A member of the RNA family "Small nucleolar RNA snR60/Z15/Z230/Z193/J17" from Papaver nudicaule, 95 nucleotides long. The family has 23 seed sequences and 3,592 matches in Rfam 15.1. Rfam links the family to the GO terms RNA processing and nucleolus. The source organism's lineage runs through Eukaryota, Streptophytina, Spermatophyta, Ranunculales and Papaver. Clan: SNORD77 clan. Rfam classes the family as a C/D-box small nucleolar RNA.
RNA sequence: UGAGUUGAAGUGAUGAUUGUUGCAUAGUUCAGAUGAGAUUUGUCUUUGAUUAAUUUAAACAGAAAUUAGUCUUUCGCUCCUAUCUGAUCAACUCC
Numbered sequence: 001u002g003a004g005u006u007g008a009a010g011u012g013a014u015g016a017u018u019g020u021u022g023c024a025u026a027g028u029u030c031a032g033a034u035g036a037g038a039u040u041u042g043u044c045u046u047u048g049a050u051u052a053a054u055u056u057a058a059a060c061a062g063a064a065a066u067u068a069g070u071c072u073u074u075c076g077c078u079c080c081u082a083u084c085u086g087a088u089c090a091a092c093u094c095c
Stems, first nucleotide, its partner, number of pairs: 004092005